[Rfam]
RNA: Manganese Mn2+ riboswitch aptamer (yybP-ykoY)
RNA sequence: AAUAUUUCCAAAGGGGAGUAGCGUCAGGUUGUUGAACCUGAAACAAAGUCGUCAUUCCGUGAGCAUUUGUUCACCGGCUUUGUUGGCACAUAGAUGUCUAGCAAGACCUUUGCCGUUUUUCAUGGCAGAGGUCUUUUUUGCGUUCUUUUCUCUGCUAUGGUAAU
Number, nucleotide and partner (000 for none) at each position: 001a000002a000003u000004a000005u000006u000007u000008c000009c000010a000011a000012a000013g000014g000015g000016g000017a000018g000019u000020a000021g000022c000023g000024u000025c040026a039027g038028g000029u000030u000031g000032u000033u000034g000035a000036a000037c000038c027039u026040g025041a000042a084043a083044c082045a081046a080047a079048g078049u077050c076051g075052u000053c000054a000055u000056u000057c000058c000059g074060u073061g072062a071063g070064c000065a000066u000067u000068u000069g000070u063071u062072c061073a060074c059075c051076g050077g049078c048079u047080u046081u045082g044083u043084u042085g000086g000087c000088a000089c000090a164091u163092a000093g000094a000095u000096g000097u000098c000099u000100a000101g000102c000103a000104a000105g000106a000107c000108c000109u000110u000111u000112g000113c000114c000115g000116u000117u000118u000119u000120u000121c000122a000123u000124g000125g000126c000127a000128g000129a000130g000131g000132u000133c000134u000135u000136u000137u000138u000139u000140g000141c000142g000143u000144u000145c000146u000147u000148u000149u000150c000151u000152c000153u000154g000155c000156u000157a000158u000159g000160g000161u000162a000163a091164u090